mir-22 microRNA precursor family: an 85-nucleotide RNA sequence from Xenopus laevis. The family has 48 seed sequences and 884 matches in Rfam 15.1. The organism belongs to Xenopus, within Eukaryota. Rfam links the family to the GO terms miRNA-mediated post-transcriptional gene silencing and RISC complex. A search with the family's covariance model found it, with a score of 72 bits. The literature on the family includes a 2001 paper in Science by Lagos-Quintana et al., "Identification of novel genes coding for small expressed RNAs".

[Rfam]
RNA sequence: GCCCACUAGAAGCAGUUCUUCAGUGGCAAGCUUUAUGUUGUUCUUCUGUGCUAAAGCUGCCAGUUGAAGAACUGUUGAAAGCGGC
Numbered sequence: 001g002c003c004c005a006c007u008a009g010a011a012g013c014a015g016u017u018c019u020u021c022a023g024u025g026g027c028a029a030g031c032u033u034u035a036u037g038u039u040g041u042u043c044u045u046c047u048g049u050g051c052u053a054a055a056g057c058u059g060c061c062a063g064u065u066g067a068a069g070a071a072c073u074g075u076u077g078a079a080a081g082c083g084g085c
Stems, first nucleotide, its partner, number of pairs: 006081002011076001016071006025061003029058007